[Rfam]
RNA: U4 spliceosomal RNA
Organism: Muntiacus reevesi
RNA sequence: AACUUUGUGCAGUGACAGUAUCAUAGUCAAUGAUUUUUAUCUGAGGCACGAUUAUUACUAAUUGAAACUUUUCCCAAUACCCCAACCAUGACGACCUGAAAUAUAGUUGGCAUUGGCAAUUUUUGAUAGUCUCCACAGAGA
Numbered sequence: 001a002a003c004u005u006u007g008u009g010c011a012g013u014g015a016c017a018g019u020a021u022c023a024u025a026g027u028c029a030a031u032g033a034u035u036u037u038u039a040u041c042u043g044a045g046g047c048a049c050g051a052u053u054a055u056u057a058c059u060a061a062u063u064g065a066a067a068c069u070u071u072u073c074c075c076a077a078u079a080c081c082c083c084a085a086c087c088a089u090g091a092c093g094a095c096c097u098g099a100a101a102u103a104u105a106g107u108u109g110g111c112a113u114u115g116g117c118a119a120u121u122u123u124u125g126a127u128a129g130u131c132u133c134c135a136c137a138g139a140g141a
Base pairs, nucleotide, nucleotide: 020052021051022050024048026047027046028045086116087115088113089112090111092109093108094107095106130141131140132139133138